About this RNA
A member of the RNA family "RAGATH-10 RNA", 89 nucleotides long. Rfam's curators put it in the seed alignment. The family's RNA type in Rfam is small RNA.
RNA sequence: GAAACCUCAUCUUGCUCAAGUGCCAUCCGGGCGCCAGGGCAGUGUUUUUACAAGAAAACACAGGCAAUCUGCCUGGGUGAGGAGAGAGU
Numbered sequence: 001g002a003a004a005c006c007u008c009a010u011c012u013u014g015c016u017c018a019a020g021u022g023c024c025a026u027c028c029g030g031g032c033g034c035c036a037g038g039g040c041a042g043u044g045u046u047u048u049u050a051c052a053a054g055a056a057a058a059c060a061c062a063g064g065c066a067a068u069c070u071g072c073c074u075g076g077g078u079g080a081g082g083a084g085a086g087a088g089u
Stems, first nucleotide, its partner, number of pairs: 005082008015039003020034005042061008062074004